RNA sequence: CCUGCUAUGCGAUUAGCAGUAGCCUAGGGGGACAUGCGUCACUGGCAACGGUGGGGUGUGAAGCUCCCCUGACAAUGUAGCCCCCGUAAGGGUGCCCUCUCGUCGUGAGAUCGGAGGGUAGAAAGCCGAAGCAGCAUCGGUUGAGGAGC
Number, nucleotide and partner (000 for none) at each position: 001c000002c019003u018004g017005c016006u015007a014008u000009g000010c000011g000012a000013u000014u007015a006016g005017c004018a003019g002020u000021a000022g000023c000024c000025u000026a000027g000028g069029g068030g067031g066032a065033c060034a059035u058036g057037c056038g000039u054040c053041a052042c051043u050044g049045g000046c000047a000048a000049c044050g043051g042052u041053g040054g039055g000056g037057u036058g035059u034060g033061a000062a000063g000064c000065u032066c031067c030068c029069c028070u000071g000072a000073c000074a000075a000076u000077g000078u000079a000080g000081c000082c092083c091084c090085c000086g000087u000088a000089a000090g084091g083092g082093u120094g119095c118096c117097c000098u000099c000100u000101c000102g000103u110104c109105g000106u000107g000108a000109g104110a103111u000112c000113g000114g000115a000116g000117g096118g095119u094120a093121g000122a000123a000124a142125g141126c140127c139128g138129a137130a000131g000132c000133a000134g000135c000136a000137u129138c128139g127140g126141u125142u124143g000144a000145g000146g000147a000148g000149c000